A member of the RNA family "Burkholderia RNA 14" from Burkholderia cenocepacia, 173 nucleotides long. About the family: Co-purified with Hfq, expression confirmed by Northern blot. Putative functional homologue of PA-SraF. Overlaps coding sequence. Taxonomically the source falls in Burkholderia cenocepacia (Bacteria, Pseudomonadota, Burkholderiaceae, Burkholderia). Rfam 15.1 lists 98 matches to the family in 91 species. It is annotated as a small RNA.
RNA sequence: GUCGGCGUCGUCACCGUGCAGCCGCAAGCCGUGCCGGCGGUGACCGAACUGCCGGGCCGCACCAGUGCAUUCCUCGUCGCGCAGGUGCGUGCGCGGGUCGACGGCAUCGUGCUGCGUCGUGAAUUCACCGAAGGCACCGACGUCAAGGCCGGCCAGCGUCUGUACAAGAUCGA
Numbered sequence: 001g002u003c004g005g006c007g008u009c010g011u012c013a014c015c016g017u018g019c020a021g022c023c024g025c026a027a028g029c030c031g032u033g034c035c036g037g038c039g040g041u042g043a044c045c046g047a048a049c050u051g052c053c054g055g056g057c058c059g060c061a062c063c064a065g066u067g068c069a070u071u072c073c074u075c076g077u078c079g080c081g082c083a084g085g086u087g088c089g090u091g092c093g094c095g096g097g098u099c100g101a102c103g104g105c106a107u108c109g110u111g112c113u114g115c116g117u118c119g120u121g122a123a124u125u126c127a128c129c130g131a132a133g134g135c136a137c138c139g140a141c142g143u144c145a146a147g148g149c150c151g152g153c154c155a156g157c158g159u160c161u162g163u164a165c166a167a168g169a170u171c172g173a
Base pairs, nucleotide, nucleotide: 003054004053005052006051007050008047009046010045011043012042013041014040015039016038019036021034022033023031024030055150056149057148058147059143060142063139065137066136067135068134072133074131075130078093079092080091081090082089094121095120097118099116100115102114103113104112105111106110157172158171159169160168161167
Dot-bracket structure: ..((((((((((((((..(.((((.....)).)).).)))))).)))..)))))((((((..(.((((...(.((..(((((......)))))((.(.((.(((((...))))))).).))........)).))))).)..))...))))......(((((.....))).)).